RNA sequence: CCAUUAAGUGAUGACAUGAUAGAUGAAGUGCCACAUCAUAACGCCUUGUCAGGGAUACCUCAUUGCCACAUUUUCACCUUCAAUGAUAUGACAAUGACGUGUUAGUGAUUGGGCGUGAUAAUGUGACACUCCGUCUGCCAUGUCAUCACUUAACGGAA
Numbered sequence: 001c002c003a004u005u006a007a008g009u010g011a012u013g014a015c016a017u018g019a020u021a022g023a024u025g026a027a028g029u030g031c032c033a034c035a036u037c038a039u040a041a042c043g044c045c046u047u048g049u050c051a052g053g054g055a056u057a058c059c060u061c062a063u064u065g066c067c068a069c070a071u072u073u074u075c076a077c078c079u080u081c082a083a084u085g086a087u088a089u090g091a092c093a094a095u096g097a098c099g100u101g102u103u104a105g106u107g108a109u110u111g112g113g114c115g116u117g118a119u120a121a122u123g124u125g126a127c128a129c130u131c132c133g134u135c136u137g138c139c140a141u142g143u144c145a146u147c148a149c150u151u152a153a154c155g156g157a158a
Base pairs, nucleotide, nucleotide: 001156002155004153005152006151007150008149009148010147011146012145013144014143015142016141017140018139020137021136022135023134024133025132027130028129029128030127032125033124034123035122036121038119039118041116042115043114044113045112046111048109049108050107051106054103055102056101057100058099070087071086072085074083
Dot-bracket structure: ((.(((((((((((((((.((((((.((((.(((((.((.((((((.((((..(((((...........(((.(........).)))...........)))))..)))).)))))).)).))))).)))).)))))).))))))))))))))).))..